Rfam assigns this 69-nucleotide RNA from Rhizobium johnstonii to the family "S-element".
The family has 29 seed sequences and 231 matches in Rfam 15.1.
Its family is annotated with mRNA transcription and translation regulator activity in the Gene Ontology.
Lineage of the source: Bacteria > Pseudomonadati > Hyphomicrobiales > Rhizobium > Rhizobium johnstonii.
It is one of the family's seed sequences.
The family's RNA type in Rfam is cis-regulatory element.
This family represents a group of S-elements from p42d and related plasmids.
On this family, see Venkova-Canova et al., Mol Microbiol 2004: "Two discrete elements are required for the replication of a repABC plasmid: an antisense RNA and a stem-loop structure".

RNA sequence: AGUCAAGAGUCUUGGCGCCGCUUUUUGGUGAGCAGAAUUCUUUUGCCUAAACUGAGGUAAAGGCAAAUG
Numbered sequence: 001a002g003u004c005a006a007g008a009g010u011c012u013u014g015g016c017g018c019c020g021c022u023u024u025u026u027g028g029u030g031a032g033c034a035g036a037a038u039u040c041u042u043u044u045g046c047c048u049a050a051a052c053u054g055a056g057g058u059a060a061a062g063g064c065a066a067a068u069g
Stems, first nucleotide, its partner, number of pairs: 009064005017058003025055004030048001032046005